RNA sequence: UGGUCCAUCGGGGCCUCGGAUACCUGCAUUUAUUCUU
Number, nucleotide and partner (000 for none) at each position: 001u000002g000003g014004u013005c012006c011007a000008u000009c000010g000011g006012g005013g004014c003015c000016u000017c026018g025019g024020a000021u000022a000023c000024c019025u018026g017027c000028a000029u000030u000031u000032a000033u000034u000035c000036u000037u000
Rfam assigns this 37-nucleotide RNA sequence from Castor canadensis to the family "XIST RNA A repeat". Rfam 15.1 lists 900 matches to the family in 145 species. The match comes from Rfam's covariance-model search (50 bits). A reference for the family is Duszczyk et al. (2011), "The Xist RNA A-repeat comprises a novel AUCG tetraloop fold and a platform for multimerization", RNA. The family's RNA type in Rfam is small RNA. The source organism's lineage runs through Eukaryota, Euteleostomi, Mammalia, Castoridae and Castor.